[Rfam]
RNA: Bacterial RNase P class A
RNA sequence: CGCUUUAUCGCAGACGGUCGCUGGUCGCGCGCAGGCGCGGCGAGAGGAAAGUCCGGGCAUCACAGGGCAGGGUGAUCGGUAACACCGACCGGGGGCAACCCCAGGGAAAGUGCCACAGAGAUAUACCGCCGCGCUGCGGCGCGGUAAGGGUGAAAAGGUGAGGUAAGAGCUCACCGGGGCGGCGGUGACGUCGCUCGUCCAGGUAAACCCCACCCGAUGCAAGGUAAACAGAGGUUGAGCGUCUUUUAAGACGCUCCGAGGUGCCCCCCUCGCUGACCUCAGGUAACCGCUUGAGCCUCACGGCAACGUGAGGCCUAGAUGAAUGACCGUCACCGCGUGUCAUACACGCGGGACAAAACCCGGCUUACGCGAUAAAGCGAGAC
Numbered sequence: 001c002g003c004u005u006u007a008u009c010g011c012a013g014a015c016g017g018u019c020g021c022u023g024g025u026c027g028c029g030c031g032c033a034g035g036c037g038c039g040g041c042g043a044g045a046g047g048a049a050a051g052u053c054c055g056g057g058c059a060u061c062a063c064a065g066g067g068c069a070g071g072g073u074g075a076u077c078g079g080u081a082a083c084a085c086c087g088a089c090c091g092g093g094g095g096c097a098a099c100c101c102c103a104g105g106g107a108a109a110g111u112g113c114c115a116c117a118g119a120g121a122u123a124u125a126c127c128g129c130c131g132c133g134c135u136g137c138g139g140c141g142c143g144g145u146a147a148g149g150g151u152g153a154a155a156a157g158g159u160g161a162g163g164u165a166a167g168a169g170c171u172c173a174c175c176g177g178g179g180c181g182g183c184g185g186u187g188a189c190g191u192c193g194c195u196c197g198u199c200c201a202g203g204u205a206a207a208c209c210c211c212a213c214c215c216g217a218u219g220c221a222a223g224g225u226a227a228a229c230a231g232a233g234g235u236u237g238a239g240c241g242u243c244u245u246u247u248a249a250g251a252c253g254c255u256c257c258g259a260g261g262u263g264c265c266c267c268c269c270u271c272g273c274u275g276a277c278c279u280c281a282g283g284u285a286a287c288c289g290c291u292u293g294a295g296c297c298u299c300a301c302g303g304c305a306a307c308g309u310g311a312g313g314c315c316u317a318g319a320u321g322a323a324u325g326a327c328c329g330u331c332a333c334c335g336c337g338u339g340u341c342a343u344a345c346a347c348g349c350g351g352g353a354c355a356a357a358a359c360c361c362g363g364c365u366u367a368c369g370c371g372a373u374a375a376a377g378c379g380a381g382a383c
Stems, first nucleotide, its partner, number of pairs: 001379010013331007021044002024041006049366003053363005058219004065266004070215005076088004090104001091102004105210002110208002112204003126149002128145007157175006176199001177196008223288003231280006257272005295314008